[Rfam]
RNA sequence: GUCGAGCUAAGUAACGAGAGCUUGUGAUCCAUGUGGGGACAAUAAGAUAGUGGAACACUGGUUCGGUCCACGGGUCGGAUCUGGCGUGGCAGGUUUCUGAGCUGCCCAGUCCAAGCUGAGAGUUAGCUGUCUGGUUUGAGCGAAGGUUCGAAUUUGGUGGUUGCUAAAGGUGGAGGGUAAUGCGUCAGGCUGGUUUCACAGAGCAGCGAGCACUUCCCGCUCUCUGCAGUGGACGGAUAACGGCUCGGCGCCACCCAGACCCAUAUGGCCUGCUGGUUCGUUCCUAGCUGAACCACUAUUUUU
Numbered sequence: 001g002u003c004g005a006g007c008u009a010a011g012u013a014a015c016g017a018g019a020g021c022u023u024g025u026g027a028u029c030c031a032u033g034u035g036g037g038g039a040c041a042a043u044a045a046g047a048u049a050g051u052g053g054a055a056c057a058c059u060g061g062u063u064c065g066g067u068c069c070a071c072g073g074g075u076c077g078g079a080u081c082u083g084g085c086g087u088g089g090c091a092g093g094u095u096u097c098u099g100a101g102c103u104g105c106c107c108a109g110u111c112c113a114a115g116c117u118g119a120g121a122g123u124u125a126g127c128u129g130u131c132u133g134g135u136u137u138g139a140g141c142g143a144a145g146g147u148u149c150g151a152a153u154u155u156g157g158u159g160g161u162u163g164c165u166a167a168a169g170g171u172g173g174a175g176g177g178u179a180a181u182g183c184g185u186c187a188g189g190c191u192g193g194u195u196u197c198a199c200a201g202a203g204c205a206g207c208g209a210g211c212a213c214u215u216c217c218c219g220c221u222c223u224c225u226g227c228a229g230u231g232g233a234c235g236g237a238u239a240a241c242g243g244c245u246c247g248g249c250g251c252c253a254c255c256c257a258g259a260c261c262c263a264u265a266u267g268g269c270c271u272g273c274u275g276g277u278u279c280g281u282u283c284c285u286a287g288c289u290g291a292a293c294c295a296c297u298a299u300u301u302u303u
Base pairs, nucleotide, nucleotide: 001040002039003038004023005022006021007020008019028037029036030035044302045301046300047299048298049297050296051295052294053293056290057289058287059286060285061283064280065279066278067276068275071272072271073270074269075268076267077262078261080259081258082257083256084255086254087253088252089251092249097248098247099246100245101244102243103242104241106236107235109234110233111232112231113230115227116226118224119223120222121221122220123219124163125162126161127160128159129158130157131156133154134153135152136151137150138149139148140147141146164169172217173216174215175214176213181210183208184207185206190201191200192199